[Rfam]
Rfam assigns this 112-nucleotide RNA from [Mycoplasma] phocae to the family "DUF3800-I RNA". Rfam's curators write: Actinobacteria, Firmicutes, Fusobacteria, Proteobacteria (1 example), Tenericutes (2 examples).

RNA sequence: UGUAAUUACAGGUUAUAAACGCUGUACACUAUAUUGCUAGAACACAAGUUUAAGUGCUAUGUGUUAACACCAACAAUGUAGGAGACUGCAUUUAGCAGUAUUUUUCUUUUCU
Number, nucleotide and partner (000 for none) at each position: 001u000002g000003u000004a000005a000006u000007u026008a025009c024010a023011g022012g020013u019014u018015a000016u000017a000018a014019a013020c012021g000022c011023u010024g009025u008026a007027c000028a000029c081030u080031a079032u078033a077034u076035u000036g000037c000038u073039a000040g071041a050042a049043c048044a000045c000046a000047a000048g043049u042050u041051u000052a000053a000054g070055u069056g068057c000058u066059a065060u000061g000062u000063g000064u000065u059066a058067a000068c056069a055070c054071c040072a000073a038074c000075a000076a034077u033078g032079u031080a030081g029082g102083a101084g000085a099086c098087u097088g096089c095090a000091u000092u000093u000094a000095g089096c088097a087098g086099u085100a000101u083102u082103u000104u000105u000106c000107u000108u000109u000110u000111c000112u000